RNA sequence: UUAUGUUUUGUUGAUGGUCAUCUAACCAUCUUUCUUCCCAUUAACAUUUUCAUGAGAAAUGGAUUAUGGUUAGAUGAUCAUCAACAAACACAUU
Numbered sequence: 001u002u003a004u005g006u007u008u009u010g011u012u013g014a015u016g017g018u019c020a021u022c023u024a025a026c027c028a029u030c031u032u033u034c035u036u037c038c039c040a041u042u043a044a045c046a047u048u049u050u051c052a053u054g055a056g057a058a059a060u061g062g063a064u065u066a067u068g069g070u071u072a073g074a075u076g077a078u079c080a081u082c083a084a085c086a087a088a089c090a091c092a093u094u
Stems, first nucleotide, its partner, number of pairs: 005089004010085020